[Rfam]
RNA sequence: GUUCCCUCUCUCUAAUCCUAGCUAUCCGGGUCCUAGUGCUGUCUCGAAGCAAUGCACCUGGGCAAGGAUUCAGAAAGGGUGGGC
Numbered sequence: 001g002u003u004c005c006c007u008c009u010c011u012c013u014a015a016u017c018c019u020a021g022c023u024a025u026c027c028g029g030g031u032c033c034u035a036g037u038g039c040u041g042u043c044u045c046g047a048a049g050c051a052a053u054g055c056a057c058c059u060g061g062g063c064a065a066g067g068a069u070u071c072a073g074a075a076a077g078g079g080u081g082g083g084c
Stems, first nucleotide, its partner, number of pairs: 014070006025062007037051003

Shown here is an 84-nucleotide RNA sequence from Sus scrofa, a member of the family "mir-500 microRNA precursor family".
Rfam links the family to the GO terms RISC complex and miRNA-mediated post-transcriptional gene silencing.
Lineage of the source: Eukaryota > Metazoa > Deuterostomia > Sarcopterygii > Sus.